[Rfam]
RNA sequence: UAGUUGGUGAAAGACCAACCAAAUGAGGGGCCAAGCCACCUUUGUAGCUAAGAUGCCUGCACAUGGCGAAAUUCGUGUGUAGAAGCGCAUCGACGAAAGUACUGGUCCGAGACUGGGCGAGCAACAAUCCAGGCCGCAACAUCA
Dot-bracket structure: ...................((((.................)))).......(((((((((((...(......)...))))))....))))).......(..(((((.....))))).)..((.............)).......
Overview:
A member of the RNA family "Group II catalytic intron D1-D4-4" from Paenibacillus donghaensis, 144 nucleotides long. The organism belongs to Paenibacillus, within Bacteria. Group II introns are found in rRNA, tRNA and mRNA of organelles in fungi, plants and protists, and also in mRNA in bacteria. A reference for the family is Lehmann and Schmidt (2003), "Group II introns: structure and catalytic versatility of large natural ribozymes", Crit Rev Biochem Mol Biol.